This 235-nucleotide sequence from Pelotomaculum propionicicum belongs to the Rfam family "c-di-AMP riboswitch aptamer (ydaO/yuaA leader)". About the family: This family represents a conserved RNA structure found upstream of the ydaO and yuaA genes in Bacillus subtilis and related genes in other bacteria.
[Rfam]
RNA sequence: CUUAUUAAACCGCUCAAUUCUUUAAGUAGAAGCGGGGGAACCAUUUUUCACCGGGGUGAAUCAAUUUGGUCGUGAGUCGUUGGACUUUGGUAGUUGGGCUGCUUGUUGGAAUUCGGUUUACCGAAUUCCUUCUAAAGACUAACCCCCAACCACCCACCACUCACCACCCAAAUUGUAGGGCUAUUCUUUCGGCCCGAAUCCGUCAGCUAACCUCGUCAGCGUUGAAAGGGAAGCA
Numbered sequence: 001c002u003u004a005u006u007a008a009a010c011c012g013c014u015c016a017a018u019u020c021u022u023u024a025a026g027u028a029g030a031a032g033c034g035g036g037g038g039a040a041c042c043a044u045u046u047u048u049c050a051c052c053g054g055g056g057u058g059a060a061u062c063a064a065u066u067u068g069g070u071c072g073u074g075a076g077u078c079g080u081u082g083g084a085c086u087u088u089g090g091u092a093g094u095u096g097g098g099c100u101g102c103u104u105g106u107u108g109g110a111a112u113u114c115g116g117u118u119u120a121c122c123g124a125a126u127u128c129c130u131u132c133u134a135a136a137g138a139c140u141a142a143c144c145c146c147c148a149a150c151c152a153c154c155c156a157c158c159a160c161u162c163a164c165c166a167c168c169c170a171a172a173u174u175g176u177a178g179g180g181c182u183a184u185u186c187u188u189u190c191g192g193c194c195c196g197a198a199u200c201c202g203u204c205a206g207c208u209a210a211c212c213u214c215g216u217c218a219g220c221g222u223u224g225a226a227a228g229g230g231a232a233g234c235a
Stems, first nucleotide, its partner, number of pairs: 011221004018031003032216006042053001054201003062175008178195004